[Rfam]
RNA sequence: CGAUUUGAGUAAUCGCUGCAAUCUUGUAUUGUAGAGGAAAGUCCAUGCUCACACAGUGCUGAGAUGCCUGUAGUGCCCGUGCAUACUGAAACCAUAAGGUAUGGCAGUGUAACAGCUGACGGCGGAAGUAAUACCUAAACCUUUAGGCAUGGUAGACGCUUCCUGAAAGUGCCACAGAGACGAAGCUUUACGAGAAAUCGUAAAGGUGGAACGAGGUAAACCCCGCGAGUGAGAAACCCAAAUUAGGUAGGGGCACUCUCUAAAAGGAAUUGAACGGAUAGAGAGACGGUCAAUGAUCGUAGACAGAUGAUUACUGCUCGAUUUACGAGGCAACUGCCGUUUGAGUAAGCGAGAACAAAACAUGGCUUACAGAA
Numbered sequence: 001c002g003a004u005u006u007g008a009g010u011a012a013u014c015g016c017u018g019c020a021a022u023c024u025u026g027u028a029u030u031g032u033a034g035a036g037g038a039a040a041g042u043c044c045a046u047g048c049u050c051a052c053a054c055a056g057u058g059c060u061g062a063g064a065u066g067c068c069u070g071u072a073g074u075g076c077c078c079g080u081g082c083a084u085a086c087u088g089a090a091a092c093c094a095u096a097a098g099g100u101a102u103g104g105c106a107g108u109g110u111a112a113c114a115g116c117u118g119a120c121g122g123c124g125g126a127a128g129u130a131a132u133a134c135c136u137a138a139a140c141c142u143u144u145a146g147g148c149a150u151g152g153u154a155g156a157c158g159c160u161u162c163c164u165g166a167a168a169g170u171g172c173c174a175c176a177g178a179g180a181c182g183a184a185g186c187u188u189u190a191c192g193a194g195a196a197a198u199c200g201u202a203a204a205g206g207u208g209g210a211a212c213g214a215g216g217u218a219a220a221c222c223c224c225g226c227g228a229g230u231g232a233g234a235a236a237c238c239c240a241a242a243u244u245a246g247g248u249a250g251g252g253g254c255a256c257u258c259u260c261u262a263a264a265a266g267g268a269a270u271u272g273a274a275c276g277g278a279u280a281g282a283g284a285g286a287c288g289g290u291c292a293a294u295g296a297u298c299g300u301a302g303a304c305a306g307a308u309g310a311u312u313a314c315u316g317c318u319c320g321a322u323u324u325a326c327g328a329g330g331c332a333a334c335u336g337c338c339g340u341u342u343g344a345g346u347a348a349g350c351g352a353g354a355a356c357a358a359a360a361c362a363u364g365g366c367u368u369a370c371a372g373a374a
Stems, first nucleotide, its partner, number of pairs: 004374003007370001008315007016034006039368003043365005048233005053071004058067002078227004082103006104120001105118004121223002124163004132154004140147002169221002171217003186205008237252003256285007286300006317353004322348001324347003

A member of the RNA family "Bacterial RNase P class B" from Lysinibacillus alkalisoli, 374 nucleotides long.
Rfam classes the family as a ribozyme.
The family is grouped with related families in Rfam's "RNaseP clan".
It scores 312 bits against the family's covariance model.
The organism belongs to Lysinibacillus, within Bacteria.
The literature on the family includes a 1999 paper in Nucleic Acids Res by Brown, "The Ribonuclease P Database".
Gene Ontology terms of the family: ribonuclease P activity, dimeric ribonuclease P complex and tRNA processing.
Ribonuclease P (RNase P) is a ubiquitous endoribonuclease, found in archaea, bacteria and eukarya as well as chloroplasts and mitochondria.